[Rfam]
RNA sequence: UCCUGGGGCCCUUCAUUCCACCGGAAUCUGUCACGCGGAUCCCAGAUUUCUGUGGGAUGAAGCCACUCAUGGA
Numbered sequence: 001u002c003c004u005g006g007g008g009c010c011c012u013u014c015a016u017u018c019c020a021c022c023g024g025a026a027u028c029u030g031u032c033a034c035g036c037g038g039a040u041c042c043c044a045g046a047u048u049u050c051u052g053u054g055g056g057a058u059g060a061a062g063c064c065a066c067u068c069a070u071g072g073a
Stems, first nucleotide, its partner, number of pairs: 011062006019054003023050004028045003

Shown here is a 73-nucleotide RNA from Pardalotus punctatus, a member of the family "mir-205 microRNA precursor family".
Its family is annotated with RISC complex and miRNA-mediated post-transcriptional gene silencing in the Gene Ontology.
The family's consensus secondary structure was predicted with RNAalifold.
The organism belongs to Pardalotus, within Eukaryota.
It scores 57 bits against the family's covariance model.